[Rfam]
RNA: MicX Vibrio cholerae sRNA
Organism: Vibrio ziniensis
RNA sequence: AUAACAACGAUAAGGGCGACUGUAAGGUCGCCCAUUUUGUAUCUACUUAACAAUUUGGUUUGGCCGCUGAUCAGUUAAGACAGGUACAUACCUUCUGGCGUUACGCAUAGCUGGCUGUUAGCUCAAUUCCUUACUGUAAAUGACUAACGGUUUUUGUAACCAUGACCUGAGCUCUGCUCAGGUUUUUUUAU
Numbered sequence: 001a002u003a004a005c006a007a008c009g010a011u012a013a014g015g016g017c018g019a020c021u022g023u024a025a026g027g028u029c030g031c032c033c034a035u036u037u038u039g040u041a042u043c044u045a046c047u048u049a050a051c052a053a054u055u056u057g058g059u060u061u062g063g064c065c066g067c068u069g070a071u072c073a074g075u076u077a078a079g080a081c082a083g084g085u086a087c088a089u090a091c092c093u094u095c096u097g098g099c100g101u102u103a104c105g106c107a108u109a110g111c112u113g114g115c116u117g118u119u120a121g122c123u124c125a126a127u128u129c130c131u132u133a134c135u136g137u138a139a140a141u142g143a144c145u146a147a148c149g150g151u152u153u154u155u156g157u158a159a160c161c162a163u164g165a166c167c168u169g170a171g172c173u174c175u176g177c178u179c180a181g182g183u184u185u186u187u188u189u190a191u
Stems, first nucleotide, its partner, number of pairs: 014033008043084001046079006055070005100160006113152009164184009